A member of the RNA family "COG2827 RNA" from Enterocloster clostridioformis, 76 nucleotides long.
[Rfam]
RNA sequence: GCUGGUGCUUUAAUCAUAGAUUACAGGGCAACCUGGGCGGUGAUGACGUGUUGCAAGCGUUGUUACCGUUUACAUA
Numbered sequence: 001g002c003u004g005g006u007g008c009u010u011u012a013a014u015c016a017u018a019g020a021u022u023a024c025a026g027g028g029c030a031a032c033c034u035g036g037g038c039g040g041u042g043a044u045g046a047c048g049u050g051u052u053g054c055a056a057g058c059g060u061u062g063u064u065a066c067c068g069u070u071u072a073c074a075u076a
Stems, first nucleotide, its partner, number of pairs: 024035004036070014